About this RNA: Small nucleolar RNA SNORA44: a 131-nucleotide sequence from Halcyon senegalensis. Gene Ontology terms of the family: RNA processing and nucleolus. The family's RNA type in Rfam is H/ACA-box small nucleolar RNA. The base pairs follow the family's consensus structure, which was predicted with PFOLD. Rfam's curators write: ACA44 is a member of the H/ACA class of snoRNA that guide the sites of modification of uridines to pseudouridines. It scores 71 bits against the family's covariance model. Rfam 15.1 lists 1,056 matches to the family in 599 species. On this family, see Huttenhofer et al., EMBO J 2001: "RNomics: an experimental approach that identifies 201 candidates for novel, small, non-messenger RNAs in mouse".

RNA sequence: GCGCAUGUUUAUCCAAGAGCUGUGGCUCCAUCCCAUAGCUCCAGCUCUCCAACAACAUGCAAGAGCGACGGGAAGGUCUUUGACUGCUGGGCCUCUUCUGCCUGUUGCUGUCACUCGCCCCUCCUAUAGAU
Numbered sequence: 001g002c003g004c005a006u007g008u009u010u011a012u013c014c015a016a017g018a019g020c021u022g023u024g025g026c027u028c029c030a031u032c033c034c035a036u037a038g039c040u041c042c043a044g045c046u047c048u049c050c051a052a053c054a055a056c057a058u059g060c061a062a063g064a065g066c067g068a069c070g071g072g073a074a075g076g077u078c079u080u081u082g083a084c085u086g087c088u089g090g091g092c093c094u095c096u097u098c099u100g101c102c103u104g105u106u107g108c109u110g111u112c113a114c115u116c117g118c119c120c121c122u123c124c125u126a127u128a129g130a131u
Base pairs, nucleotide, nucleotide: 013044018040019039020038021037022036023035024034071124072123073122075120076119086111087110088104089103090102091101
Dot-bracket structure: ............(....(((((((.........)))))))...)..........................(((.((.........((((((.........)))).....)).......)).))).......